[Rfam]
RNA sequence: AUUCCUGUUUUAGUACCGUGCAUCUGCUCCUUUUCCGGAUGUGUGGCUAUGCUAACGGGGAAGAGCAACUCUGUCAAGAUCUGAAGGGGUGUGCAGCUAUUCCCUGCUACUUCUAUAUGUACUGACAGUACAGUCAAAC
Numbered sequence: 001a002u003u004c005c006u007g008u009u010u011u012a013g014u015a016c017c018g019u020g021c022a023u024c025u026g027c028u029c030c031u032u033u034u035c036c037g038g039a040u041g042u043g044u045g046g047c048u049a050u051g052c053u054a055a056c057g058g059g060g061a062a063g064a065g066c067a068a069c070u071c072u073g074u075c076a077a078g079a080u081c082u083g084a085a086g087g088g089g090u091g092u093g094c095a096g097c098u099a100u101u102c103c104c105u106g107c108u109a110c111u112u113c114u115a116u117a118u119g120u121a122c123u124g125a126c127a128g129u130a131c132a133g134u135c136a137a138a139c
Stems, first nucleotide, its partner, number of pairs: 004059004016046010073126004091114001093112001
The record is a 139-nucleotide sequence from Clupea harengus, which matches "Small nucleolar RNA SNORA29" in Rfam.
The literature on the family includes a 2001 paper in EMBO J by Huttenhofer et al., "RNomics: an experimental approach that identifies 201 candidates for novel, small, non-messenger RNAs in mouse".
The organism belongs to Clupea, within Eukaryota.
Rfam describes the family as follows. ACA29 is a member of the H/ACA class of snoRNA that guide the sites of modification of uridines to pseudouridines.
Rfam links the family to the GO terms nucleolus and RNA processing.